[Rfam]
RNA: Clostridiales-1 RNA
Organism: Mobilisporobacter senegalensis
RNA sequence: GCAGAUUAGUCCAUAGGGUUUAGGACCUUUAUCAAGCUUGCUUGCAUAAAGGUCCUAAACCCUAUGGAUAAGUGCAACGUGAGCGAGAAAACGCAGUUUUAGAGCUCCUAAUCUGCGAAAAUGCAGAUAUUCGAAAUGCAACGUGAGCGAGAAAACGUAGUUUUAGAGCUCCUAAUCUGC
Numbered sequence: 001g002c003a004g005a006u007u008a009g010u011c012c013a014u015a016g017g018g019u020u021u022a023g024g025a026c027c028u029u030u031a032u033c034a035a036g037c038u039u040g041c042u043u044g045c046a047u048a049a050a051g052g053u054c055c056u057a058a059a060c061c062c063u064a065u066g067g068a069u070a071a072g073u074g075c076a077a078c079g080u081g082a083g084c085g086a087g088a089a090a091a092c093g094c095a096g097u098u099u100u101a102g103a104g105c106u107c108c109u110a111a112u113c114u115g116c117g118a119a120a121a122u123g124c125a126g127a128u129a130u131u132c133g134a135a136a137u138g139c140a141a142c143g144u145g146a147g148c149g150a151g152a153a154a155a156c157g158u159a160g161u162u163u164u165a166g167a168g169c170u171c172c173u174a175a176u177c178u179g180c
Stems, first nucleotide, its partner, number of pairs: 001180007010068004016062016033044004073140004080135001083132001085130001093124003097120003145171004153163004